Shown here is a 172-nucleotide RNA sequence from Desulforamulus ferrireducens, a member of the family "Group II catalytic intron D1-D4-3".
RNA sequence: UCCAUCGUGAGGUGGAAUCUGAAAGAAGCUGGAGGCAAAUUCCCGACCUGAGGUACACGAAUCACAUUCGAGGCUGUUAUAUUCGGGCAAGACUGCCAGACAAGUCAAAGCCCUAUGUUGCCAAGGGAUAUAGCAGUAAAUGUGGCAGGUACAUGGGAUGAAAGUUAUCGCU
Dot-bracket structure: ((((((....))))))...........(.(((..((....((((((((((...........((((((.....(((.(((((((.((((..((((........))))...)))).............))))))).)))..)))))))))))...))))).....))..))).)